[Rfam]
Shown here is a 113-nucleotide RNA sequence from Anisodus acutangulus, a member of the family "mir-166 microRNA precursor family". The family's consensus secondary structure was predicted with PFOLD. This family represents the plant microRNA (miRNA) precursor mir-166. Its family is annotated with RISC complex and miRNA-mediated post-transcriptional gene silencing in the Gene Ontology.
RNA sequence: GUUGAGGGGAAUGCUGUCUGGCUCGAAACCAUUCAGCAAAUUAAAGUCGAUGCUUAUGAUCUGAAUGAUUUCUCGAUGAUUAUGAUUUCGGACCAGGCUUCAUUCCCCCCAAC
Numbered sequence: 001g002u003u004g005a006g007g008g009g010a011a012u013g014c015u016g017u018c019u020g021g022c023u024c025g026a027a028a029c030c031a032u033u034c035a036g037c038a039a040a041u042u043a044a045a046g047u048c049g050a051u052g053c054u055u056a057u058g059a060u061c062u063g064a065a066u067g068a069u070u071u072c073u074c075g076a077u078g079a080u081u082a083u084g085a086u087u088u089c090g091g092a093c094c095a096g097g098c099u100u101c102a103u104u105c106c107c108c109c110c111a112a113c
Stems, first nucleotide, its partner, number of pairs: 001113004006108008016098006024090003
For this family Rfam cites "MicroRNAs in plants" (Reinhart et al., Genes Dev, 2002).